[Rfam]
RNA sequence: UCACCGUCUGGCUUGGAUUCGCUUGGUGCAUGCCGGGAACCAAUUGUCUAACACAUCCACCAAGUUUUACUUGCUGGUUUGUGAGCAGGGAUUGGAUCCCGCCUUGCAUCAAUUGAAUCGGAGUCCUGAAGGUGAAA
Numbered sequence: 001u002c003a004c005c006g007u008c009u010g011g012c013u014u015g016g017a018u019u020c021g022c023u024u025g026g027u028g029c030a031u032g033c034c035g036g037g038a039a040c041c042a043a044u045u046g047u048c049u050a051a052c053a054c055a056u057c058c059a060c061c062a063a064g065u066u067u068u069a070c071u072u073g074c075u076g077g078u079u080u081g082u083g084a085g086c087a088g089g090g091a092u093u094g095g096a097u098c099c100c101g102c103c104u105u106g107c108a109u110c111a112a113u114u115g116a117a118u119c120g121g122a123g124u125c126c127u128g129a130a131g132g133u134g135a136a137a
Stems, first nucleotide, its partner, number of pairs: 013122002017118004023112008032103001034101005040095006
The record is a 137-nucleotide RNA from Brassica rapa, which matches "MIR168 microRNA precursor family" in Rfam. Rfam 15.1 lists 518 matches to the family in 218 species. For this family Rfam cites "Prediction of plant microRNA targets" (Rhoades et al., Cell, 2002). The organism belongs to Brassica, within Eukaryota. Rfam links the family to the GO terms RISC complex and miRNA-mediated post-transcriptional gene silencing.